A member of the RNA family "Arthropod 7SK RNA" from Nezara viridula, 256 nucleotides long.
The family has 19 seed sequences and 229 matches in Rfam 15.1.
The match comes from Rfam's covariance-model search (78 bits).
Its Rfam clan is "7SK clan".
It is annotated as a non-coding RNA gene.

RNA sequence: GGAAGUGUGUGUCAGGUGAUGGCACAACUGAACAUUGAUCGUUCAUUGAUUUAGUGCAGAUCUGCUCAGUGUAGUGUUAUCACGUGGUUUCUAGUAGCCAAAGCGGAACUGCCCGAUGACUCGGCUCUCGGUAGAGAUCCGCUUCUGGGCUCCUAGAAUCACCGCGGCUGUUUCCAAAUUGGAGUAUUCUCCCUCUGUAAUUUCGUCACUUCCAUUACUCGGCACUACACGCCACCGUAGUCUGCCUUCUUUUUUC
Numbered sequence: 001g002g003a004a005g006u007g008u009g010u011g012u013c014a015g016g017u018g019a020u021g022g023c024a025c026a027a028c029u030g031a032a033c034a035u036u037g038a039u040c041g042u043u044c045a046u047u048g049a050u051u052u053a054g055u056g057c058a059g060a061u062c063u064g065c066u067c068a069g070u071g072u073a074g075u076g077u078u079a080u081c082a083c084g085u086g087g088u089u090u091c092u093a094g095u096a097g098c099c100a101a102a103g104c105g106g107a108a109c110u111g112c113c114c115g116a117u118g119a120c121u122c123g124g125c126u127c128u129c130g131g132u133a134g135a136g137a138u139c140c141g142c143u144u145c146u147g148g149g150c151u152c153c154u155a156g157a158a159u160c161a162c163c164g165c166g167g168c169u170g171u172u173u174c175c176a177a178a179u180u181g182g183a184g185u186a187u188u189c190u191c192c193c194u195c196u197g198u199a200a201u202u203u204c205g206u207c208a209c210u211u212c213c214a215u216u217a218c219u220c221g222g223c224a225c226u227a228c229a230c231g232c233c234a235c236c237g238u239a240g241u242c243u244g245c246c247u248u249c250u251u252u253u254u255u256c
Base pairs, nucleotide, nucleotide: 001213002212003211004210005209006208007207016083017082018081019080020079028069029068030067033064034063037062038061039060040059041057042056044054221246222245223244224241225240226239227238228237